[Rfam]
The record is a 77-nucleotide RNA from Arthrobacter sp. FB24, which matches "Actino-pnp RNA" in Rfam.
Lineage of the source: Bacteria > Actinomycetota > Actinomycetes > Micrococcaceae > Arthrobacter.

RNA sequence: CGCGGUCCUCGGUAGUGAUUCCCGGGAACGGCUUCGAAGAAUGAAGCCCGGCCCGUGGGUCUCGAUCGAUGACCGGG
Dot-bracket structure: (.(((((.(((((...(((((.((((..((..................)).)))).)))))...))))).))))).)
Numbered sequence: 001c002g003c004g005g006u007c008c009u010c011g012g013u014a015g016u017g018a019u020u021c022c023c024g025g026g027a028a029c030g031g032c033u034u035c036g037a038a039g040a041a042u043g044a045a046g047c048c049c050g051g052c053c054c055g056u057g058g059g060u061c062u063c064g065a066u067c068g069a070u071g072a073c074c075g076g077g
Stems, first nucleotide, its partner, number of pairs: 001077001003075005009069005017061005023055004029050002